[Rfam]
Shown here is a 102-nucleotide RNA from Acetohalobium arabaticum, a member of the family "Purine riboswitch aptamer". Its family is annotated with purine nucleobase biosynthetic process in the Gene Ontology. NCBI's taxonomy places the organism under Bacteria, Bacillota, Halanaerobiales, Acetohalobium, Acetohalobium arabaticum.
RNA sequence: UAAAUAUUUCACUCUUAACCUCGUAUAAUCUCGAGAAUAAGGCUCGAAAGUUUCUACCAGUCAGCCGUAAACUGACUGUCUACGAGAUAGCGGUAGUUCUAU
Numbered sequence: 001u002a003a004a005u006a007u008u009u010c011a012c013u014c015u016u017a018a019c020c021u022c023g024u025a026u027a028a029u030c031u032c033g034a035g036a037a038u039a040a041g042g043c044u045c046g047a048a049a050g051u052u053u054c055u056a057c058c059a060g061u062c063a064g065c066c067g068u069a070a071a072c073u074g075a076c077u078g079u080c081u082a083c084g085a086g087a088u089a090g091c092g093g094u095a096g097u098u099c100u101a102u
Base pairs, nucleotide, nucleotide: 018088020086021085022084023083024082025081029049031047032046033045034044035043058078059077060076061075062074063073064072